This 46-nucleotide RNA sequence from Halotalea alkalilenta belongs to the Rfam family "Guanidine-II riboswitch aptamer (mini-ykkC)". The literature on the family includes a 2007 paper in Nucleic Acids Res by Weinberg et al., "Identification of 22 candidate structured RNAs in bacteria using the CMfinder comparative genomics pipeline". Rfam describes the family as follows. Simpler in structure and has fewer highly conserved nucleotide positions than the ykkC-yxkD leader.
RNA sequence: CGGCGAGGACGGCCUCGCUCGCAUCUCGAGACGGCGGGACGACCCG
Numbered sequence: 001c002g003g004c005g006a007g008g009a010c011g012g013c014c015u016c017g018c019u020c021g022c023a024u025c026u027c028g029a030g031a032c033g034g035c036g037g038g039a040c041g042a043c044c045c046g
Stems, first nucleotide, its partner, number of pairs: 002019007035046004